[Rfam]
Annotation:
The family of this 77-nucleotide sequence from Eptatretus burgeri is "mir-30 microRNA precursor family". NCBI's taxonomy places the organism under Eukaryota, Metazoa, Bilateria, Eptatretinae, Eptatretus. This family consists of the mammalian microRNA (miRNA) precursor mir-30a. Animal miRNAs are transcribed as ~70nt precursors and subsequently processed by the Dicer enzyme to give a ~22nt product.
RNA sequence: ACAGGCAAUGUAAACACCCUACACUCAGCUGUAUUGAUGUUUCGGACAAGCUGGGGGAGGGUGCUUACUCUGCCUGC
Numbered sequence: 001a002c003a004g005g006c007a008a009u010g011u012a013a014a015c016a017c018c019c020u021a022c023a024c025u026c027a028g029c030u031g032u033a034u035u036g037a038u039g040u041u042u043c044g045g046a047c048a049a050g051c052u053g054g055g056g057g058a059g060g061g062u063g064c065u066u067a068c069u070c071u072g073c074c075u076g077c
Stems, first nucleotide, its partner, number of pairs: 002076005010068004015063005022057001024055007
On this family, see Mourelatos et al., Genes Dev 2002: "miRNPs: a novel class of ribonucleoproteins containing numerous microRNAs".